[Rfam]
RNA sequence: GGGGAUAAACUUAGAAUCCCUAUGAAUAUUGUGUUAAUAGUCGUACUUUUGGCCGAGUGCGAUGGUUAGUGAAUC
Numbered sequence: 001g002g003g004g005a006u007a008a009a010c011u012u013a014g015a016a017u018c019c020c021u022a023u024g025a026a027u028a029u030u031g032u033g034u035u036a037a038u039a040g041u042c043g044u045a046c047u048u049u050u051g052g053c054c055g056a057g058u059g060c061g062a063u064g065g066u067u068a069g070u071g072a073a074u075c
Stems, first nucleotide, its partner, number of pairs: 001021006034069005040063009
RNA: L13-Bacteroidia ribosomal protein leader
Organism: Xylanibacter oryzae